RNA sequence: UUUCGGCUUAGUUAGGGGGCGUAAACUAAUUCGGACCCCAGAGUACUUCUGGGGUCUUCUGCCGAGGCCUUCUUGACUCUUGAGGGGACUCUCUGUUCUUCACUCUCAAUUGACCUCCAAGCAGCCUUGGAUAUUU
Number, nucleotide and partner (000 for none) at each position: 001u000002u000003u000004c021005g020006g000007c018008u017009u016010a000011g000012u000013u000014a000015g000016g009017g008018g007019g000020c005021g004022u000023a000024a000025a000026c000027u000028a000029a000030u000031u000032c000033g000034g056035a055036c054037c053038c052039c000040a000041g000042a048043g000044u000045a000046c000047u000048u042049c000050u000051g000052g038053g037054g036055u035056c034057u000058u000059c000060u000061g000062c130063c129064g128065a127066g126067g125068c124069c000070u000071u000072c000073u000074u000075g000076a000077c000078u000079c121080u120081u119082g118083a000084g117085g116086g115087g114088a000089c112090u000091c000092u109093c000094u000095g000096u000097u000098c000099u000100u000101c000102a000103c000104u000105c000106u000107c000108a000109a092110u000111u000112g089113a000114c087115c086116u085117c084118c082119a081120a080121g079122c000123a000124g068125c067126c066127u065128u064129g063130g062131a000132u000133a000134u000135u000136u000
Annotation: Shown here is a 136-nucleotide RNA from Actinidia chinensis, a member of the family "Small nucleolar RNA U19". Rfam 15.1 lists 421 matches to the family in 201 species. It is annotated as an H/ACA-box small nucleolar RNA. The base pairs follow the family's consensus structure, which was predicted with WAR. The organism belongs to Actinidia chinensis, within Eukaryota. Gene Ontology terms of the family: RNA processing and nucleolus.